[Rfam]
Nucleotides: 164
Base pairs, nucleotide, nucleotide: 011149012148013147014146018034019033020032021031022030036143037142038141039140040139045069070129071128072127078104079103080102081101107123108122109121110120
Number, partner (000 for none) and nucleotide at each position: 001000c002000a003000u004000c005000g006000u007000u008000a009000g010000a011149c012148g013147c014146u015000g016000a017000a018034u019033c020032c021031u022030g023000g024000u025000a026000c027000g028000a029000c030022c031021a032020g033019g034018a035000a036143c037142g038141g039140g040139g041000g042000a043000a044000c045069c046000a047000a048000c049000c050000g051000g052000a053000g054000c055000c056000a057000u058000c059000a060000u061000c062000g063000g064000c065000u066000c067000c068000a069045g070129g071128g072127g073000u074000g075000a076000a077000u078104c079103g080102c081101u082000u083000g084000g085000c086000a087000c088000a089000a090000g091000a092000a093000c094000c095000g096000u097000g098000c099000c100000c101081g102080g103079c104078g105000u106000a107123g108122g109121g110120c111000g112000a113000c114000u115000c116000u117000c118000g119000c120110g121109c122108c123107c124000g125000a126000a127072u128071c129070c130000g131000a132000c133000a134000g135000c136000u137000a138000a139040c140039c141038u142037c143036g144000c145000a146014a147013g148012c149011g150000u151000a152000u153000c154000g155000g156000a157000g158000a159000g160000g161000c162000a163000a164000c